[Rfam]
RNA: tRNA
Organism: Leptospirillum ferrooxidans
RNA sequence: GGAGAGAUGGCCGAGAGGCUGAAGGCGGUUGACUCGAAAUCAACUCUGGGGGGAACUCCAGCGGGGGUUCAAAUCCCUCUCUCUCCG
Numbered sequence: 001g002g003a004g005a006g007a008u009g010g011c012c013g014a015g016a017g018g019c020u021g022a023a024g025g026c027g028g029u030u031g032a033c034u035c036g037a038a039a040u041c042a043a044c045u046c047u048g049g050g051g052g053g054a055a056c057u058c059c060a061g062c063g064g065g066g067g068u069u070c071a072a073a074u075c076c077c078u079c080u081c082u083c084u085c086c087g
Stems, first nucleotide, its partner, number of pairs: 001086007010026003028044005063079005